[Rfam]
RNA sequence: UAGUGGUGCAUUGUAGUUGCAUUGCGUGUCAAACUUGUGCAAUGUCUCUGCAGUGCAAUCACCA
Dot-bracket structure: (.((.(((((((((((..(.(((((((.........))))))).)..))))))))))..))).)
Numbered sequence: 001u002a003g004u005g006g007u008g009c010a011u012u013g014u015a016g017u018u019g020c021a022u023u024g025c026g027u028g029u030c031a032a033a034c035u036u037g038u039g040c041a042a043u044g045u046c047u048c049u050g051c052a053g054u055g056c057a058a059u060c061a062c063c064a
Stems, first nucleotide, its partner, number of pairs: 001064001003062002006060001007057010019045001021043007